[Rfam]
Rfam assigns this 69-nucleotide sequence from Streptomyces sp. H-KF8 to the family "ASpks TB sRNA".
The family's consensus secondary structure is taken from published work.
On this family, see Arnvig and Young, Mol Microbiol 2009: "Identification of small RNAs in Mycobacterium tuberculosis".
Nucleotides: 069
Stems, first nucleotide, its partner, number of pairs: 014026002017023001027063001032059001037054003041050003
Number, partner (000 for none) and nucleotide at each position: 001000c002000u003000u004000c005000a006000a007000c008000g009000a010000c011000c012000c013000c014026a015025g016000g017023u018000a019000c020000a021000g022000g023017g024000g025015c026014u027063c028000c029000u030000g031000g032059c033000g034000g035000u036000c037054c038053u039052g040000u041050c042049c043048g044000u045000a046000g047000g048043c049042g050041g051000c052039c053038a054037g055000c056000a057000g058000g059032g060000c061000c062000u063027g064000c065000g066000c067000c068000u069000c